[Rfam]
RNA sequence: AAAAGUCUUCAGGGCAGGGUGUGAUUCCCGACCGGUGGUAAAAGUCCACUACCUUACGUUUUGUAAGCUGAACUGGUGUAAUUCCAGUACCGACAGUUAAAGUCUGGAUGGAAGAGGAUUCAA
Number, nucleotide and partner (000 for none) at each position: 001a000002a000003a000004a120005g119006u118007c117008u116009u115010c114011a000012g000013g000014g000015c000016a000017g029018g028019g027020u000021g000022u000023g000024a000025u000026u000027c019028c018029c017030g000031a103032c102033c092034g091035g049036u048037g047038g046039u000040a000041a000042a000043a000044g090045u089046c038047c037048a036049c035050u000051a000052c000053c067054u066055u000056a000057c000058g000059u000060u000061u000062u000063g000064u000065a000066a054067g053068c000069u000070g000071a000072a088073c087074u086075g085076g084077u000078g000079u000080a000081a000082u000083u000084c076085c075086a074087g073088u072089a045090c044091c034092g033093a000094c106095a105096g104097u000098u000099a000100a000101a000102g032103u031104c096105u095106g094107g000108a000109u000110g000111g000112a000113a000114g010115a009116g008117g007118a006119u005120u004121c000122a000123a000

Shown here is a 123-nucleotide sequence from Dolosicoccus paucivorans, a member of the family "FMN riboswitch aptamer (RFN element)". The organism belongs to Dolosicoccus, within Bacteria.